[Rfam]
RNA sequence: CAACCUGAUUGCUACCGGAUAACUAAAAUCAUAAAAAAAUUCCUCUUUGACGGGCCGAUAGCAAUAUUGGCCUUUUUUUU
Number, nucleotide and partner (000 for none) at each position: 001c000002a000003a000004c000005c000006u000007g020008a000009u018010u017011g016012c000013u000014a000015c000016c011017g010018g009019a000020u007021a000022a000023c000024u000025a000026a000027a000028a000029u034030c000031a000032u000033a000034a029035a000036a000037a000038a000039a000040u000041u000042c000043c000044u000045c000046u000047u000048u000049g000050a000051c000052g073053g072054g071055c070056c069057g068058a067059u066060a065061g000062c000063a000064a000065u060066a059067u058068u057069g056070g055071c054072c053073u052074u000075u000076u000077u000078u000079u000080u000
Background
The family of this 80-nucleotide RNA from Erwinia billingiae is "sroB RNA". It scores 68 bits against the family's covariance model. For this family Rfam cites "Switching off small RNA regulation with trap-mRNA" (Overgaard et al., Mol Microbiol, 2009). The base pairs follow the family's consensus structure, which was predicted with LocARNA.